This 80-nucleotide RNA sequence from Lentzea aerocolonigenes belongs to the Rfam family "SAH (S-adenosyl-L-homocysteine) riboswitch aptamer". Pairs were carried over by alignment from the consensus structure, which is taken from published work.
RNA sequence: GAGGCCGAGAAGCGCUGCAACGGGCUCCAGACCCGCCACGCUCGGCCUUGUACGACCAUGAACAAGGGCGCUUCCGACUU
Numbered sequence: 001g002a003g004g005c006c007g008a009g010a011a012g013c014g015c016u017g018c019a020a021c022g023g024g025c026u027c028c029a030g031a032c033c034c035g036c037c038a039c040g041c042u043c044g045g046c047c048u049u050g051u052a053c054g055a056c057c058a059u060g061a062a063c064a065a066g067g068g069c070g071c072u073u074c075c076g077a078c079u080u
Stems, first nucleotide, its partner, number of pairs: 002048007021035004026030001